Source information: Rfam assigns this 112-nucleotide RNA sequence from Faecalibacterium sp. CAG:82 to the family "c-di-GMP-I riboswitch aptamer". Its family is annotated with cyclic-di-GMP binding in the Gene Ontology.

RNA sequence: UGAAAACUUUGGCAAACCUGGCGUGAGCCGGGGACGCAAAGCUUGGAGUUUUUUGUGCUGGCAUUCCCCGGAGGGAAACGCCAGAAAACCAGAAGAUAGUUCGGCUGCAUUC
Numbered sequence: 001u002g003a004a005a006a007c008u009u010u011g012g013c014a015a016a017c018c019u020g021g022c023g024u025g026a027g028c029c030g031g032g033g034a035c036g037c038a039a040a041g042c043u044u045g046g047a048g049u050u051u052u053u054u055g056u057g058c059u060g061g062c063a064u065u066c067c068c069c070g071g072a073g074g075g076a077a078a079c080g081c082c083a084g085a086a087a088a089c090c091a092g093a094a095g096a097u098a099g100u101u102c103g104g105c106u107g108c109a110u111u112c
Stems, first nucleotide, its partner, number of pairs: 012037002017032006040106004045102003048097008